RNA: Bacteriophage MS2 operator hairpin
RNA sequence: AAACACUUGCCAUUCAAACAUGAGGACCUACAUUUGGAUCUAUAGCACCCAUGU
Numbered sequence: 001a002a003a004c005a006c007u008u009g010c011c012a013u014u015c016a017a018a019c020a021u022g023a024g025g026a027c028c029u030a031c032a033u034u035u036g037g038a039u040c041u042a043u044a045g046c047a048c049c050c051a052u053g054u
Stems, first nucleotide, its partner, number of pairs: 018054005024049002